[Rfam]
RNA: RT-3 RNA
RNA sequence: GAUCGGCGUACAGUACUGGAGACGUGUCCCCAAAACGGUGCCGAGGGAAGUAAGCCACAGCAACAGCAUCUAAAAAGGUGGAAAGCUGAAAAAUCACGCGUCGGGUGGAGUUUGGUAGGUCAUUUACUUGAUUCGAAGAAGUCAGGCCCG
Numbered sequence: 001g002a003u004c005g006g007c008g009u010a011c012a013g014u015a016c017u018g019g020a021g022a023c024g025u026g027u028c029c030c031c032a033a034a035a036c037g038g039u040g041c042c043g044a045g046g047g048a049a050g051u052a053a054g055c056c057a058c059a060g061c062a063a064c065a066g067c068a069u070c071u072a073a074a075a076a077g078g079u080g081g082a083a084a085g086c087u088g089a090a091a092a093a094u095c096a097c098g099c100g101u102c103g104g105g106u107g108g109a110g111u112u113u114g115g116u117a118g119g120u121c122a123u124u125u126a127c128u129u130g131a132u133u134c135g136a137a138g139a140a141g142u143c144a145g146g147c148c149c150g
Stems, first nucleotide, its partner, number of pairs: 003044006011038001013036002018031002021028002046056002058088004067080005102150005108143002111140003118133005